[Rfam]
RNA: mir-23 microRNA precursor family
Organism: Salvator merianae
RNA sequence: UGCCAGAUGGGGUUCCUGGUGAUGUGAUUUUAUUCCAGUGCUUUGAAUCACAUUGCCAGGGAUUUCCAACUGUUG
Numbered sequence: 001u002g003c004c005a006g007a008u009g010g011g012g013u014u015c016c017u018g019g020u021g022a023u024g025u026g027a028u029u030u031u032a033u034u035c036c037a038g039u040g041c042u043u044u045g046a047a048u049c050a051c052a053u054u055g056c057c058a059g060g061g062a063u064u065u066c067c068a069a070c071u072g073u074u075g
Stems, first nucleotide, its partner, number of pairs: 001075002004072003010067002012063019